[Rfam]
RNA sequence: CGGAGACGAGCGGGAGAGAGUCGGCGGUGCCGGCCGCCGAAGGAGCAACCGCCCCGGAAACUCUCAGGCACCCGGACCGCUCGCCUCAG
Numbered sequence: 001c002g003g004a005g006a007c008g009a010g011c012g013g014g015a016g017a018g019a020g021u022c023g024g025c026g027g028u029g030c031c032g033g034c035c036g037c038c039g040a041a042g043g044a045g046c047a048a049c050c051g052c053c054c055c056g057g058a059a060a061c062u063c064u065c066a067g068g069c070a071c072c073c074g075g076a077c078c079g080c081u082c083g084c085c086u087c088a089g
Stems, first nucleotide, its partner, number of pairs: 007083007020034004036069003039065002043063003049057002
This 89-nucleotide RNA from Agaricicola taiwanensis belongs to the Rfam family "Glycine riboswitch aptamer". It scores 65 bits against the family's covariance model. Lineage of the source: Bacteria > Pseudomonadati > Pseudomonadota > Paracoccaceae > Agaricicola.